The record is a 47-nucleotide RNA sequence from Brevundimonas sp. Leaf363, which matches "chrB-b RNA" in Rfam. The organism belongs to Brevundimonas, within Bacteria. The match comes from Rfam's covariance-model search (52 bits). Pairs were carried over by alignment from the consensus structure, which is taken from published work.

[Rfam]
RNA sequence: UCGGGCCAUUGCGGACGCCCGGUCAGGCGAUUCCGCCCAAGCGCCGC
Numbered sequence: 001u002c003g004g005g006c007c008a009u010u011g012c013g014g015a016c017g018c019c020c021g022g023u024c025a026g027g028c029g030a031u032u033c034c035g036c037c038c039a040a041g042c043g044c045c046g047c
Stems, first nucleotide, its partner, number of pairs: 001022006011047004026037004